[Rfam]
RNA sequence: UAUGGUGUGAGGAGUAAGUUGAAGACAGAAAGCGCUAGGAGUCGAAACACGGCAAGACGUCCAGGCGCUUUUUGUU
Dot-bracket structure: ..........................((((..((...((((((............))).)))...))..))))...

This 76-nucleotide sequence from Nostocales cyanobacterium HT-58-2 belongs to the Rfam family "Cyano-1 RNA". Pairs were carried over by alignment from the consensus structure, which is taken from published work. It is annotated as a small RNA. It scores 43 bits against the family's covariance model.